[Rfam]
RNA sequence: CAACAGGCUAGACCGAUCAUCGAAAAGCGUAAACCGUAAUGCGCCUGCCUGUUGUUUUUAUAAAUUACG
Dot-bracket structure: ((((((((..((.......)).....(((((...[[[[[)))))..))))))))..........]]]]]
This 69-nucleotide RNA belongs to the Rfam family "int-alpA RNA". The family's consensus secondary structure is taken from published work. Rfam describes the family as follows. Acidobacteria (1 example), Planctomycetes (1 example), Proteobacteria.